Rfam assigns this 95-nucleotide sequence from Megasphaera paucivorans to the family "pan motif".

RNA sequence: CAGUCGGUAUCAUUGAGAACCGGACUAAGUUAUAACUGUGAAAGUUAUGCAUUAAUAAUUAGCGACUUGUAUCUCGUUGAGAACAAGAACGGAGG
Numbered sequence: 001c002a003g004u005c006g007g008u009a010u011c012a013u014u015g016a017g018a019a020c021c022g023g024a025c026u027a028a029g030u031u032a033u034a035a036c037u038g039u040g041a042a043a044g045u046u047a048u049g050c051a052u053u054a055a056u057a058a059u060u061a062g063c064g065a066c067u068u069g070u071a072u073c074u075c076g077u078u079g080a081g082a083a084c085a086a087g088a089a090c091g092g093a094g095g
Base pairs, nucleotide, nucleotide: 002026003025004023005022006021007020008019010018011017063091064090066087067086068085069084070083072082073081074080
Rfam classes the family as a cis-regulatory element.